[Rfam]
RNA sequence: UAUUAGAAUGAAGAGACUGUUGAAAGUGUCUCUGUCAUUAUUUGAUCACUGAGGUAUAUCAAGCCUAACGGGCGAGUCAUCGUUUCGAUCGCCCUUUCUGUGAUUGGCGAAUCGAUUGUUCCUCGUCUACAU
Numbered sequence: 001u002a003u004u005a006g007a008a009u010g011a012a013g014a015g016a017c018u019g020u021u022g023a024a025a026g027u028g029u030c031u032c033u034g035u036c037a038u039u040a041u042u043u044g045a046u047c048a049c050u051g052a053g054g055u056a057u058a059u060c061a062a063g064c065c066u067a068a069c070g071g072g073c074g075a076g077u078c079a080u081c082g083u084u085u086c087g088a089u090c091g092c093c094c095u096u097u098c099u100g101u102g103a104u105u106g107g108c109g110a111a112u113c114g115a116u117u118g119u120u121c122c123u124c125g126u127c128u129a130c131a132u
Stems, first nucleotide, its partner, number of pairs: 007039005013032005070128002073125004079116004089110005096103002

A member of the RNA family "Small nucleolar RNA snoR111" from Cajanus cajan, 132 nucleotides long. Lineage of the source: Eukaryota > Viridiplantae > Spermatophyta > Mesangiospermae > Cajanus. The family's RNA type in Rfam is H/ACA-box small nucleolar RNA. The base pairs follow the family's consensus structure, which was predicted with WAR. For this family Rfam cites "Experimental RNomics: identification of 140 candidates for small non-messenger RNAs in the plant Arabidopsis thaliana" (Marker et al., Curr Biol, 2002).